Small nucleolar RNA SNORA73 family: a 222-nucleotide sequence from Chanos chanos.
Rfam classes the family as an H/ACA-box small nucleolar RNA.
Its Rfam clan is "snR30-U17 clan".
The family has 66 seed sequences and 2,326 matches in Rfam 15.1.
From the family's description: U17 (SNORA73A and SNORA73B) also known as E1 belongs to the H/ACA class of small nucleolar RNAs (snoRNAs). Vertebrate U17 is intron-encoded and ranges in length from 200-230 nucleotides, longer than most snoRNAs. It is one of the most abundant snoRNAs in human cells and is essential for the cleavage of pre-rRNA within the 5' external transcribed spacer (ETS).
RNA sequence: CCAACGUGGAUACCCUGUGAGCAGGCACUCACAAGGCUCUGUCCGUGUGGCGUAUGGGAGCGUAGCACAUUCAGUGCCAUGACGUAUAGUCCCGUUCCACGCCGUUGGAGAAUAAGUCAGUCCCCGGCCCUCGGCUGGUGUGGACGGCGUCCUGUAUAUUCCUACAUCUUUCCAGAGCCCUUAGGGCCGUUACUGGGGAGGUAAACCAUGCAGUGCACACUC
Numbered sequence: 001c002c003a004a005c006g007u008g009g010a011u012a013c014c015c016u017g018u019g020a021g022c023a024g025g026c027a028c029u030c031a032c033a034a035g036g037c038u039c040u041g042u043c044c045g046u047g048u049g050g051c052g053u054a055u056g057g058g059a060g061c062g063u064a065g066c067a068c069a070u071u072c073a074g075u076g077c078c079a080u081g082a083c084g085u086a087u088a089g090u091c092c093c094g095u096u097c098c099a100c101g102c103c104g105u106u107g108g109a110g111a112a113u114a115a116g117u118c119a120g121u122c123c124c125c126g127g128c129c130c131u132c133g134g135c136u137g138g139u140g141u142g143g144a145c146g147g148c149g150u151c152c153u154g155u156a157u158a159u160u161c162c163u164a165c166a167u168c169u170u171u172c173c174a175g176a177g178c179c180c181u182u183a184g185g186g187c188c189g190u191u192a193c194u195g196g197g198g199a200g201g202u203a204a205a206c207c208a209u210g211c212a213g214u215g216c217a218c219a220c221u222c
Stems, first nucleotide, its partner, number of pairs: 001108006008044005014036003018031004047100004056093004060087001062085002065080001152213006168200006177187004